[Rfam]
RNA sequence: GCCCUGUCACCGCCCCACGACCAGGAAGACAUGACAGGGACGGGGGAACCACCACCGGGCGCCGGAGACGGCGUCCUCGGGGUGAAGCCGGACGGGAACCCCAGUGACCGUACGGCCGGGUGCCAGCAUCUCCCACCCGAACCCGACAGCUCACCUCGCAGGCGGCCACAGGAGACAAU
Numbered sequence: 001g002c003c004c005u006g007u008c009a010c011c012g013c014c015c016c017a018c019g020a021c022c023a024g025g026a027a028g029a030c031a032u033g034a035c036a037g038g039g040a041c042g043g044g045g046g047a048a049c050c051a052c053c054a055c056c057g058g059g060c061g062c063c064g065g066a067g068a069c070g071g072c073g074u075c076c077u078c079g080g081g082g083u084g085a086a087g088c089c090g091g092a093c094g095g096g097a098a099c100c101c102c103a104g105u106g107a108c109c110g111u112a113c114g115g116c117c118g119g120g121u122g123c124c125a126g127c128a129u130c131u132c133c134c135a136c137c138c139g140a141a142c143c144c145g146a147c148a149g150c151u152c153a154c155c156u157c158g159c160a161g162g163c164g165g166c167c168a169c170a171g172g173a174g175a176c177a178a179u
Base pairs, nucleotide, nucleotide: 002039003038004037005036006035007034008033009032041158042157043156044155045154050079080144081143082142088115089114090113118138119137120136121135
This 179-nucleotide RNA sequence from Antribacter soli belongs to the Rfam family "c-di-AMP riboswitch aptamer (ydaO/yuaA leader)". The organism belongs to Antribacter, within Bacteria. Rfam's curators write: This family represents a conserved RNA structure found upstream of the ydaO and yuaA genes in Bacillus subtilis and related genes in other bacteria. Its family is annotated with cyclic-di-AMP binding and regulation of gene expression in the Gene Ontology.